Shown here is a 112-nucleotide RNA from Bacteroidetes bacterium B1(2017), a member of the family "SAM riboswitch aptamer (S box leader)".
[Rfam]
RNA sequence: CACUUAUCCAGAAAGACGGAGGGAAUAGGCCCUAUGAUGUCUUGGCAAGUCAGCUAUAUAGCAGAUAGUGCCAAUACCUAUUUCGAAGGUUCCCUUCGGAUGCUGAUAAGUG
Numbered sequence: 001c002a003c004u005u006a007u008c009c010a011g012a013a014a015g016a017c018g019g020a021g022g023g024a025a026u027a028g029g030c031c032c033u034a035u036g037a038u039g040u041c042u043u044g045g046c047a048a049g050u051c052a053g054c055u056a057u058a059u060a061g062c063a064g065a066u067a068g069u070g071c072c073a074a075u076a077c078c079u080a081u082u083u084c085g086a087a088g089g090u091u092c093c094c095u096u097c098g099g100a101u102g103c104u105g106a107u108a109a110g111u112g
Stems, first nucleotide, its partner, number of pairs: 001112008013043005021032003026080004044072004050067001051064001053062002076104001082100007

Background: From the family's description: The SAM riboswitch is found upstream of a number of genes which code for proteins involved in methionine or cysteine biosynthesis in Gram-positive bacteria.